Rfam assigns this 151-nucleotide sequence from Mycoplana azooxidifex to the family "Alphaproteobacterial sRNA ar7". It scores 123 bits against the family's covariance model. Pairs were carried over by alignment from the consensus structure. A reference for the family is del Val et al. (2012), "A survey of sRNA families in alpha-proteobacteria", RNA Biol. NCBI's taxonomy places the organism under Bacteria, Pseudomonadati, Alphaproteobacteria, Hyphomicrobiales, Mycoplana.
RNA sequence: CAUCGGCACCUGAUCAAGCCGUGGUCUGGCAUCCCGGCCUGUCCCCCGCCGCGCCAGACCAGAGGACAAAGGCCUUAUCCCCCUCUCCGGGCCUUUGUCCACAAUUUGCAAGGGCCGCUUCGGACGUACCUCCCGUCCGAAGCGGCCCUUC
Numbered sequence: 001c002a003u004c005g006g007c008a009c010c011u012g013a014u015c016a017a018g019c020c021g022u023g024g025u026c027u028g029g030c031a032u033c034c035c036g037g038c039c040u041g042u043c044c045c046c047c048g049c050c051g052c053g054c055c056a057g058a059c060c061a062g063a064g065g066a067c068a069a070a071g072g073c074c075u076u077a078u079c080c081c082c083c084u085c086u087c088c089g090g091g092c093c094u095u096u097g098u099c100c101a102c103a104a105u106u107u108g109c110a111a112g113g114g115c116c117g118c119u120u121c122g123g124a125c126g127u128a129c130c131u132c133c134c135g136u137c138c139g140a141a142g143c144g145g146c147c148c149u150u151c
Stems, first nucleotide, its partner, number of pairs: 025058006036050003064100011112147001115145012